Shown here is a 151-nucleotide sequence, a member of the family "IS605-orfB-II RNA". Rfam classes the family as a small RNA.
[Rfam]
RNA sequence: CAUGAUUAGCGCAUGCUAGGAUUGUAUAGAGGGUAGUCCCAGUCACCUCAACUCCGACAAAUGUAUGCAAAUUUCAUUUUCAUGCAUUUGUAAGGUGAGAAACAACAAUUAAGUUGGAAACUUUAAUUUUAUUAAUGAAUUAAGGAACUGG
Number, nucleotide and partner (000 for none) at each position: 001c000002a000003u000004g000005a000006u019007u018008a017009g016010c015011g000012c000013a000014u000015g010016c009017u008018a007019g006020g000021a000022u000023u000024g000025u000026a000027u000028a000029g000030a000031g048032g047033g046034u045035a000036g000037u000038c000039c151040c150041a149042g148043u000044c000045a034046c033047c032048u031049c000050a000051a000052c099053u098054c097055c000056g000057a091058c090059a089060a088061a087062u086063g085064u084065a083066u082067g000068c000069a079070a078071a077072u076073u000074u000075c000076a072077u071078u070079u069080u000081c000082a066083u065084g064085c063086a062087u061088u060089u059090g058091u057092a000093a000094g000095g000096u000097g054098a053099g052100a000101a000102a000103c116104a115105a114106c113107a000108a000109u000110u000111a000112a000113g106114u105115u104116g103117g000118a000119a000120a000121c145122u144123u143124u142125a141126a140127u139128u138129u137130u000131a000132u000133u000134a000135a000136u000137g129138a128139a127140u126141u125142a124143a123144g122145g121146a000147a000148c042149u041150g040151g039